[Rfam]
The record is a 55-nucleotide sequence from Solanum tuberosum, which matches "MIR8008 microRNA precursor family" in Rfam. The family has 2 seed sequences and 240 matches in Rfam 15.1.

RNA sequence: AAACCUAGAAAAGCGACGGAUAGAGUACUUUAGUCCGUCACUUUUCUGGAUUUUU
Numbered sequence: 001a002a003a004c005c006u007a008g009a010a011a012a013g014c015g016a017c018g019g020a021u022a023g024a025g026u027a028c029u030u031u032a033g034u035c036c037g038u039c040a041c042u043u044u045u046c047u048g049g050a051u052u053u054u055u
Stems, first nucleotide, its partner, number of pairs: 001053003005049009015039007
Its family is annotated with RISC complex and miRNA-mediated post-transcriptional gene silencing in the Gene Ontology.